[Rfam]
RNA sequence: ACUGCCGGACGGCUCGUCGCGCGGCGCCAUUUUCAGGUGACGUGAGGAAAGUCCGGGCAACACAGAGCGCCAUACUUUUUAACGGAAAGCCGCCGAAAGCACAUAACGGCAGAGUAGCGUGACAGAAAAUAACCGCCGGAAUCCGCUCUGCGGACUUCAGGCAAGGGUGAAAAGGUGAGGCAAGAGCUCACCGGCGCCGAUGGCGACAUUGGCGGCCGCACGCCUUAUGGGUUGCAAGGUCAAGUAUACCGGCAAUUAAGGGUUGCUCGCCCGCUGCCGGGGGGUAGACUGCUUAAGCGCGCCGUGGCAACACGCCGCUCAGAUAAAUGACGGGCCGGCACCGGGAUUCGCCCGUGCGAUAAUCCCGGCGACCGACAUAACCCGGCUUACAGUCCGGCUGUCCCA
Numbered sequence: 001a002c003u004g005c006c007g008g009a010c011g012g013c014u015c016g017u018c019g020c021g022c023g024g025c026g027c028c029a030u031u032u033u034c035a036g037g038u039g040a041c042g043u044g045a046g047g048a049a050a051g052u053c054c055g056g057g058c059a060a061c062a063c064a065g066a067g068c069g070c071c072a073u074a075c076u077u078u079u080u081a082a083c084g085g086a087a088a089g090c091c092g093c094c095g096a097a098a099g100c101a102c103a104u105a106a107c108g109g110c111a112g113a114g115u116a117g118c119g120u121g122a123c124a125g126a127a128a129a130u131a132a133c134c135g136c137c138g139g140a141a142u143c144c145g146c147u148c149u150g151c152g153g154a155c156u157u158c159a160g161g162c163a164a165g166g167g168u169g170a171a172a173a174g175g176u177g178a179g180g181c182a183a184g185a186g187c188u189c190a191c192c193g194g195c196g197c198c199g200a201u202g203g204c205g206a207c208a209u210u211g212g213c214g215g216c217c218g219c220a221c222g223c224c225u226u227a228u229g230g231g232u233u234g235c236a237a238g239g240u241c242a243a244g245u246a247u248a249c250c251g252g253c254a255a256u257u258a259a260g261g262g263u264u265g266c267u268c269g270c271c272c273g274c275u276g277c278c279g280g281g282g283g284g285u286a287g288a289c290u291g292c293u294u295a296a297g298c299g300c301g302c303c304g305u306g307g308c309a310a311c312a313c314g315c316c317g318c319u320c321a322g323a324u325a326a327a328u329g330a331c332g333g334g335c336c337g338g339c340a341c342c343g344g345g346a347u348u349c350g351c352c353c354g355u356g357c358g359a360u361a362a363u364c365c366c367g368g369c370g371a372c373c374g375a376c377a378u379a380a381c382c383c384g385g386c387u388u389a390c391a392g393u394c395c396g397g398c399u400g401u402c403c404c405a
Base pairs, nucleotide, nucleotide: 001401002400004398005397006396007395008394009393010392011390012335013334014333015332016331017330018329020044021043022042023041025039026038027037028036049388050387051386053385054384055383056382057381058234059233060232061231065268066267067266068265070230071229072228073227074226075089076088077087078086079085090112092110093109094108095107113225114224117223118222119221120220121219133166134165135162136161137160139158140157141156174192175191176190177189178188179187194216195214196213197212198211199210200209201208202207238290239289240288241287249280250279251278252277253276260272261271262270263269299318300317301316303314304313305312306311
The family of this 405-nucleotide sequence from a Muribaculaceae bacterium is "Bacterial RNase P class A". Its family is annotated with tRNA processing, ribonuclease P activity and dimeric ribonuclease P complex in the Gene Ontology. The organism belongs to Muribaculaceae, within Bacteria. The base pairs follow the family's consensus structure, which is taken from published work.